This 136-nucleotide RNA belongs to the Rfam family "Small nucleolar RNA SNORA1".
RNA sequence: AGCCUCAUUCUAGAUGAAAGUGGGCACUGUUGUCUGUGGUGUCCAAAAAUCAUUAAUGUGGCUACAUUGAGAAUACAGGUUUUGCUUCCAUCACAGUAAUCUUAUUACAGUGGUGACAAUGACACCUGUGACAUUU
Numbered sequence: 001a002g003c004c005u006c007a008u009u010c011u012a013g014a015u016g017a018a019a020g021u022g023g024g025c026a027c028u029g030u031u032g033u034c035u036g037u038g039g040u041g042u043c044c045a046a047a048a049a050u051c052a053u054u055a056a057u058g059u060g061g062c063u064a065c066a067u068u069g070a071g072a073a074u075a076c077a078g079g080u081u082u083u084g085c086u087u088c089c090a091u092c093a094c095a096g097u098a099a100u101c102u103u104a105u106u107a108c109a110g111u112g113g114u115g116a117c118a119a120u121g122a123c124a125c126c127u128g129u130g131a132c133a134u135u136u
Stems, first nucleotide, its partner, number of pairs: 002062003006058003021045007075129005089115006
Annotation: It is annotated as an H/ACA-box small nucleolar RNA. The base pairs follow the family's consensus structure, which was predicted with PFOLD. ACA1 is a member of the H/ACA class of snoRNA that guide the sites of modification of uridines to pseudouridines.